[Rfam]
Shown here is a 157-nucleotide RNA from Bifidobacterium goeldii, a member of the family "FMN riboswitch aptamer (RFN element)".
The base pairs follow the family's consensus structure, which is taken from published work.
Its family is annotated with FMN binding in the Gene Ontology.
RNA sequence: UUCAAGUUUCAGGGAAGGUGCAAUUCCUUACUGGCGGUAACAGCACGGCACUGAUAUAUCGGCCCACAUGCUCAAGCCCGCGACCCGCUCCCCUUAAGCGGCUGAUCUGGUGACAAUCCAGAGCCAACGGUUACAGUCCGGAUGGAAGAAACGGAGC
Numbered sequence: 001u002u003c004a005a006g007u008u009u010c011a012g013g014g015a016a017g018g019u020g021c022a023a024u025u026c027c028u029u030a031c032u033g034g035c036g037g038u039a040a041c042a043g044c045a046c047g048g049c050a051c052u053g054a055u056a057u058a059u060c061g062g063c064c065c066a067c068a069u070g071c072u073c074a075a076g077c078c079c080g081c082g083a084c085c086c087g088c089u090c091c092c093c094u095u096a097a098g099c100g101g102c103u104g105a106u107c108u109g110g111u112g113a114c115a116a117u118c119c120a121g122a123g124c125c126a127a128c129g130g131u132u133a134c135a136g137u138c139c140g141g142a143u144g145g146a147a148g149a150a151a152c153g154g155a156g157c
Base pairs, nucleotide, nucleotide: 006152007151008150009149010148016028017027018026030137031136032126033125034081035080036079037078076124077123085101086100106122107121108120109119110118128140129139130138
Dot-bracket structure: .....(((((.....(((.......))).[[((((((......................................[[))))...((.............))....(((((.......)))))]])).(((.....]]))).......))))).....
A search with the family's covariance model found it, with a score of 88 bits. Lineage of the source: Bacteria > Actinomycetota > Actinomycetes > Bifidobacteriaceae > Bifidobacterium.